[Rfam]
RNA sequence: AAGAGGAAAUACAAUCUACUUAAUCCGAAAGUAAACCCGUAAAACUAUCAGGUUAUAGGUGUUUUUAGGAUUAACCUCACGCCGGGGAAUUAAGCUAUUUACGGGGCAAGGGGAAUUAUCUUAUUUAAAUAAAUAAGCCGACCAUAAGGCCGGCUUAUAUUUAAUUC
Numbered sequence: 001a002a003g004a005g006g007a008a009a010u011a012c013a014a015u016c017u018a019c020u021u022a023a024u025c026c027g028a029a030a031g032u033a034a035a036c037c038c039g040u041a042a043a044a045c046u047a048u049c050a051g052g053u054u055a056u057a058g059g060u061g062u063u064u065u066u067a068g069g070a071u072u073a074a075c076c077u078c079a080c081g082c083c084g085g086g087g088a089a090u091u092a093a094g095c096u097a098u099u100u101a102c103g104g105g106g107c108a109a110g111g112g113g114a115a116u117u118a119u120c121u122u123a124u125u126u127a128a129a130u131a132a133a134u135a136a137g138c139c140g141a142c143c144a145u146a147a148g149g150c151c152g153g154c155u156u157a158u159a160u161u162u163a164a165u166u167c
Stems, first nucleotide, its partner, number of pairs: 015106003024070003028066004034060001040057002043054004112121002135156006142149002

This 167-nucleotide RNA from Buttiauxella agrestis belongs to the Rfam family "Enterobacterial sRNA STnc430".
The match comes from Rfam's covariance-model search (68 bits).
Taxonomically the source falls in Buttiauxella agrestis (Bacteria, Pseudomonadati, Gammaproteobacteria, Enterobacterales).
Pairs were carried over by alignment from the consensus structure, which was predicted with CMfinder.